The record is a 131-nucleotide RNA sequence from Castor canadensis, which matches "Small nucleolar RNA SNORA51" in Rfam. By type it is an H/ACA-box small nucleolar RNA. About the family: ACA51 is a member of the H/ACA class of snoRNA that guide the sites of modification of uridines to pseudouridines. The base pairs follow the family's consensus structure, which was predicted with PFOLD. Its family is annotated with nucleolus and RNA processing in the Gene Ontology.
[Rfam]
RNA sequence: GGCCUCCUGGUACUUACCACAUUCUGCAUUCUUACACUAACUGUAUAGGAAAAGGAGACAAACUAAACCUACCCCACAUACACCUCAGGCCAGGUCCUGUGCUUAGUCUAUAUUGUGAAUGGGAGACAUGG
Numbered sequence: 001g002g003c004c005u006c007c008u009g010g011u012a013c014u015u016a017c018c019a020c021a022u023u024c025u026g027c028a029u030u031c032u033u034a035c036a037c038u039a040a041c042u043g044u045a046u047a048g049g050a051a052a053a054g055g056a057g058a059c060a061a062a063c064u065a066a067a068c069c070u071a072c073c074c075c076a077c078a079u080a081c082a083c084c085u086c087a088g089g090c091c092a093g094g095u096c097c098u099g100u101g102c103u104u105a106g107u108c109u110a111u112a113u114u115g116u117g118a119a120u121g122g123g124a125g126a127c128a129u130g131g
Stems, first nucleotide, its partner, number of pairs: 002059001004057005020043002026037001029034001072123001074122003087109002090106001092104004